Notes: The record is a 132-nucleotide RNA from Actinomyces bowdenii, which matches "ALIL pseudoknot" in Rfam. The family's RNA type in Rfam is cis-regulatory element. The literature on the family includes a 2008 paper in J Biol Chem by Mazauric et al., "Apical loop-internal loop RNA pseudoknots: a new type of stimulator of -1 translational frameshifting in bacteria". It scores 83 bits against the family's covariance model. The family's consensus secondary structure is taken from published work. The organism belongs to Actinomyces, within Bacteria.
[Rfam]
RNA sequence: UGCCUAUUUCGCCCAGGCGGAGCUCGACCGCCGGUAGAGGUCAUCGACUCCUUCAUCGACGACAACCGACAGGACCUCGGGGUCGAGCCGAUCUGCAAGGUGCUGACUGGCGCCGGAGUCAAGACCGCCCCG
Number, nucleotide and partner (000 for none) at each position: 001u000002g000003c000004c000005u000006a000007u000008u000009u000010c000011g000012c000013c000014c000015a000016g032017g031018c030019g029020g028021a000022g000023c000024u000025c000026g000027a000028c020029c019030g018031c017032c016033g000034g000035u000036a000037g000038a000039g000040g000041u000042c000043a000044u000045c000046g000047a000048c000049u000050c000051c000052u000053u000054c000055a000056u000057c000058g000059a000060c000061g000062a000063c000064a000065a000066c000067c000068g000069a000070c000071a000072g000073g000074a000075c000076c000077u000078c132079g131080g130081g129082g128083u000084c000085g000086a000087g000088c000089c127090g126091a000092u124093c123094u122095g000096c000097a000098a000099g000100g000101u000102g000103c000104u000105g000106a000107c000108u000109g000110g000111c000112g000113c000114c000115g000116g000117a000118g000119u000120c000121a000122a094123g093124a092125c000126c090127g089128c082129c081130c080131c079132g078